mir-8364 microRNA precursor family: a 61-nucleotide RNA from Pristionchus pacificus.
[Rfam]
RNA sequence: UCUUCAUUUCGCACACUCUCUCGCUUUUCUGACCAGUGAGACAGUGUGUAAAAUGAAGAGA
Number, nucleotide and partner (000 for none) at each position: 001u059002c058003u057004u056005c055006a054007u053008u000009u000010c000011g000012c048013a047014c046015a045016c044017u043018c000019u041020c040021u039022c038023g000024c000025u000026u000027u000028u000029c000030u000031g000032a000033c000034c000035a000036g000037u000038g022039a021040g020041a019042c000043a017044g016045u015046g014047u013048g012049u000050a000051a000052a000053a007054u006055g005056a004057a003058g002059a001060g000061a000

Rfam 15.1 lists 3,320 matches to the family in 2 species. The family's consensus secondary structure was predicted with RNAalifold.